Background:
A member of the RNA family "HNH endonuclease-associated RNA and ORF (HEARO) RNA" from Ktedonobacter racemifer, 247 nucleotides long. The family's consensus secondary structure is taken from published work. The organism belongs to Ktedonobacter racemifer, within Bacteria.

RNA sequence: GUCAGGUACCCCAUGCCUAAAGGCAGGGGCUUGUGAAAGCAAGCUCGGACCUGUCCAGACUUAGCCAUGGACCUUCUGCGCGAGGCAGGAGGUUAUCAGACUACGAUAGAGGAGAAGUGUUCAAGUUCCUACCUACAGGUGUGUGCCAGCCGGUAGCUCUAGAAUCUCUGGGUUAAACAGCAAAGCGGGGUCUAUGCAGUGCUCAGGGAAAAGUACCGCCCUCUAUCAUUGUCGAGGCAAACAUUAC
Numbered sequence: 001g002u003c004a005g006g007u008a009c010c011c012c013a014u015g016c017c018u019a020a021a022g023g024c025a026g027g028g029g030c031u032u033g034u035g036a037a038a039g040c041a042a043g044c045u046c047g048g049a050c051c052u053g054u055c056c057a058g059a060c061u062u063a064g065c066c067a068u069g070g071a072c073c074u075u076c077u078g079c080g081c082g083a084g085g086c087a088g089g090a091g092g093u094u095a096u097c098a099g100a101c102u103a104c105g106a107u108a109g110a111g112g113a114g115a116a117g118u119g120u121u122c123a124a125g126u127u128c129c130u131a132c133c134u135a136c137a138g139g140u141g142u143g144u145g146c147c148a149g150c151c152g153g154u155a156g157c158u159c160u161a162g163a164a165u166c167u168c169u170g171g172g173u174u175a176a177a178c179a180g181c182a183a184a185g186c187g188g189g190g191u192c193u194a195u196g197c198a199g200u201g202c203u204c205a206g207g208g209a210a211a212a213g214u215a216c217c218g219c220c221c222u223c224u225a226u227c228a229u230u231g232u233c234g235a236g237g238c239a240a241a242c243a244u245u246a247c
Base pairs, nucleotide, nucleotide: 001055003053004052005051006050007049010029011028012026016023017022030043031042032041033040058233059232060231063102064101066099105227106226107225108224109223110222111221112220127163128162133156134155135154136153138151139150140149142241144239145238146237147236165209166208167207168206169205170204171203172202173201177200178199180197181196182195184193185192